[Rfam]
RNA sequence: UGGCGCCCACCGCAGGGCUCUGGAUACGGGGGAUCCAGUGAGGAAGAAGACGCGAGGUUGCCGGCGCUUGUGAAACGAAAGUAAAUUCCUUCGACCGCCGCGGGAGCCUGCCGCGCGGGAACAGAAGGUGAGUGCGUCUGAAUAUGGGGCAGGGAUUAAGCCAGCAUCAGCUUUAUGUUAAGCAGUUAAAGGAUGCUUUAAAGACACAAGGAGUAAAGGUUAAAGGACAUGAUUUAUUUGAAUUUUUUGAUUUUAUAGAGAAUAUUUGCCCUU
Numbered sequence: 001u002g003g004c005g006c007c008c009a010c011c012g013c014a015g016g017g018c019u020c021u022g023g024a025u026a027c028g029g030g031g032g033a034u035c036c037a038g039u040g041a042g043g044a045a046g047a048a049g050a051c052g053c054g055a056g057g058u059u060g061c062c063g064g065c066g067c068u069u070g071u072g073a074a075a076c077g078a079a080a081g082u083a084a085a086u087u088c089c090u091u092c093g094a095c096c097g098c099c100g101c102g103g104g105a106g107c108c109u110g111c112c113g114c115g116c117g118g119g120a121a122c123a124g125a126a127g128g129u130g131a132g133u134g135c136g137u138c139u140g141a142a143u144a145u146g147g148g149g150c151a152g153g154g155a156u157u158a159a160g161c162c163a164g165c166a167u168c169a170g171c172u173u174u175a176u177g178u179u180a181a182g183c184a185g186u187u188a189a190a191g192g193a194u195g196c197u198u199u200a201a202a203g204a205c206a207c208a209a210g211g212a213g214u215a216a217a218g219g220u221u222a223a224a225g226g227a228c229a230u231g232a233u234u235u236a237u238u239u240g241a242a243u244u245u246u247u248u249g250a251u252u253u254u255a256u257a258g259a260g261a262a263u264a265u266u267u268g269c270c271c272u273u
Base pairs, nucleotide, nucleotide: 006032007031008030012027014025039047087128088127090125091124095119096118099115100114101113102112103111133151134150135149137148138147139146140145157200158199159198160196161195207249208248209247210246211245212244213243214242217235218234219233220232221231222230258273259272260271263268